This 98-nucleotide RNA from Enterococcus phoeniculicola belongs to the Rfam family "Purine riboswitch aptamer". The family's consensus secondary structure is taken from published work. It scores 72 bits against the family's covariance model. Lineage of the source: Bacteria > Bacillati > Enterococcaceae > Enterococcus > Enterococcus phoeniculicola. Riboswitches are metabolite binding domains within certain messenger RNAs that serve as precision sensors for their corresponding targets.
RNA sequence: UAUCUUUUUUAAAGUUUCACUUAUAUAUCGUCGAAAUAAGGUCGACAGUCUCUACCCAAUACCGUAAAUAUUGGACUAUAAGUAAAAAACGUGUUUUU
Numbered sequence: 001u002a003u004c005u006u007u008u009u010u011a012a013a014g015u016u017u018c019a020c021u022u023a024u025a026u027a028u029c030g031u032c033g034a035a036a037u038a039a040g041g042u043c044g045a046c047a048g049u050c051u052c053u054a055c056c057c058a059a060u061a062c063c064g065u066a067a068a069u070a071u072u073g074g075a076c077u078a079u080a081a082g083u084a085a086a087a088a089a090c091g092u093g094u095u096u097u098u
Stems, first nucleotide, its partner, number of pairs: 019083007030046005056074006